A member of the RNA family "caulobacter sRNA CC2171" from Sphingomonas aerophila, 151 nucleotides long. The literature on the family includes a 2008 paper in Mol Microbiol by Landt et al., "Small non-coding RNAs in Caulobacter crescentus". By type it is a small RNA. It scores 77 bits against the family's covariance model.
RNA sequence: CAACAACUGAAAGGAGGUGGUCGAAUGUCUCAUUGUCCCAUGCCGCUCGUGGCAAGCCUGAUGGGUGCGACCUCCGCCGUGGGGUUCGUCGCCUGACGAAAGCCGCGAACGGCUGACAAUGGAAAGGCCGUCCCCGAGAGGGGGCGGCCUU
Number, nucleotide and partner (000 for none) at each position: 001c000002a000003a000004c000005a000006a000007c000008u000009g000010a000011a000012a000013g000014g000015a000016g000017g022018u000019g000020g000021u000022c017023g000024a000025a000026u000027g000028u000029c000030u000031c121032a120033u119034u118035g117036u116037c115038c000039c000040a000041u000042g000043c000044c064045g000046c000047u061048c060049g059050u000051g057052g000053c000054a000055a000056g000057c051058c000059u049060g048061a047062u000063g000064g044065g077066u076067g075068c000069g000070a000071c000072c000073u000074c000075c067076g066077c065078c098079g097080u096081g000082g000083g000084g090085u000086u000087c000088g000089u000090c084091g000092c000093c000094u000095g000096a080097c079098g078099a000100a000101a000102g113103c112104c111105g110106c000107g000108a000109a000110c105111g104112g103113c102114u000115g037116a036117c035118a034119a033120u032121g031122g000123a000124a151125a150126g149127g148128c147129c146130g145131u144132c143133c142134c141135c140136g000137a000138g000139a000140g135141g134142g133143g132144g131145c130146g129147g128148c127149c126150u125151u124